RNA sequence: AGGUCUCCAUAGUCACGUGUUGGCUUAGUGGAGAAGUCAGCAGAAGUCAUAGUACCUAAAGCAACGAGCUGUGCGAAGCACAGAGGUCUCACUAUUAGGGAAGGAC
Numbered sequence: 001a002g003g004u005c006u007c008c009a010u011a012g013u014c015a016c017g018u019g020u021u022g023g024c025u026u027a028g029u030g031g032a033g034a035a036g037u038c039a040g041c042a043g044a045a046g047u048c049a050u051a052g053u054a055c056c057u058a059a060a061g062c063a064a065c066g067a068g069c070u071g072u073g074c075g076a077a078g079c080a081c082a083g084a085g086g087u088c089u090c091a092c093u094a095u096u097a098g099g100g101a102a103g104g105a106c
Stems, first nucleotide, its partner, number of pairs: 001025002004023002008019003037044002046106003055099005
The family of this 106-nucleotide RNA from Psychroflexus sediminis is "Group II catalytic intron D1-D4-1". Pairs were carried over by alignment from the consensus structure. Taxonomically the source falls in Psychroflexus (Bacteria, Pseudomonadati, Flavobacteriales, Flavobacteriaceae). Rfam links the family to the GO term Group II intron splicing.